[Rfam]
RNA: MIR394 microRNA precursor family
Organism: Theobroma cacao
RNA sequence: UUUACAGAGCCUGUUUGACAUACUGGCCGCCUCCAAGAUCUAUGACUUUGAACUGGGGUAUCAUGCAUGAAGCAUUCAUGGAGGUGGACAGAAUGCCAAAUUGGCUCUGCAAC
Numbered sequence: 001u002u003u004a005c006a007g008a009g010c011c012u013g014u015u016u017g018a019c020a021u022a023c024u025g026g027c028c029g030c031c032u033c034c035a036a037g038a039u040c041u042a043u044g045a046c047u048u049u050g051a052a053c054u055g056g057g058g059u060a061u062c063a064u065g066c067a068u069g070a071a072g073c074a075u076u077c078a079u080g081g082a083g084g085u086g087g088a089c090a091g092a093a094u095g096c097c098a099a100a101u102u103g104g105c106u107c108u109g110c111a112a113c
Stems, first nucleotide, its partner, number of pairs: 011103001015099003019095002024090002027087008